[Rfam]
RNA sequence: CCUUGCGGGGAUAAAAACACGGCCUGGUCGGGUAGUCCAGGCGCGGCGCAAGCCGUCAGUAACCUGCCUCCUUUGGUUGUCCCUUCUCCGCUGGGUGCGC
Numbered sequence: 001c002c003u004u005g006c007g008g009g010g011a012u013a014a015a016a017a018c019a020c021g022g023c024c025u026g027g028u029c030g031g032g033u034a035g036u037c038c039a040g041g042c043g044c045g046g047c048g049c050a051a052g053c054c055g056u057c058a059g060u061a062a063c064c065u066g067c068c069u070c071c072u073u074u075g076g077u078u079g080u081c082c083c084u085u086c087u088c089c090g091c092u093g094g095g096u097g098c099g100c
Base pairs, nucleotide, nucleotide: 005091006090007089008088009087010086011085022042023041024040025039026038027037043056044055045054046053047052066077067076068075

Rfam assigns this 100-nucleotide RNA from Bittarella massiliensis to the family "azaaromatic riboswitch aptamer (yjdF RNA)". The base pairs follow the family's consensus structure, which is taken from published work. The organism belongs to Bittarella (ex Durand et al. 2017), within Bacteria.